Record summary: A member of the RNA family "Bacterial large subunit ribosomal RNA" from Treponema pallidum, 235 nucleotides of a longer RNA. Rfam's curators put it in the seed alignment. The base pairs follow the family's consensus structure, which is taken from published work. The organism belongs to Treponema pallidum subsp. pallidum, within Bacteria. Its Rfam clan is "LSU clan".
RNA sequence: GAGUUACGGUGUGCAGCAAGGUUAAGGGAUAGGAGUCCUGGAGCCGGAGGGAAACCGAGUCUUAAAAGGGCGUGGUGAGUUGUACGUCGUAGACCCGAAGCCAGGGUGAUCUAGUUAUGAGCAGGUUGAAACAGGGGUGAAGCCUUGUGGAGGACCGAACUAUAAUCUGUUAAAAAAGGUAUGGAUGACUUGUGACUAGGAGUGAAAGGCUAAACAAACCUGGAGAUAGCUGGUU
Numbered sequence: 001g002a003g004u005u006a007c008g009g010u011g012u013g014c015a016g017c018a019a020g021g022u023u024a025a026g027g028g029a030u031a032g033g034a035g036u037c038c039u040g041g042a043g044c045c046g047g048a049g050g051g052a053a054a055c056c057g058a059g060u061c062u063u064a065a066a067a068g069g070g071c072g073u074g075g076u077g078a079g080u081u082g083u084a085c086g087u088c089g090u091a092g093a094c095c096c097g098a099a100g101c102c103a104g105g106g107u108g109a110u111c112u113a114g115u116u117a118u119g120a121g122c123a124g125g126u127u128g129a130a131a132c133a134g135g136g137g138u139g140a141a142g143c144c145u146u147g148u149g150g151a152g153g154a155c156c157g158a159a160c161u162a163u164a165a166u167c168u169g170u171u172a173a174a175a176a177a178g179g180u181a182u183g184g185a186u187g188a189c190u191u192g193u194g195a196c197u198a199g200g201a202g203u204g205a206a207a208g209g210c211u212a213a214a215c216a217a218a219c220c221u222g223g224a225g226a227u228a229g230c231u232g233g234u235u
Stems, first nucleotide, its partner, number of pairs: 005091013020045004026039003049056002059071004094233002097230001101223003105220003111199011122187001124156004131148006160184003165180004201211003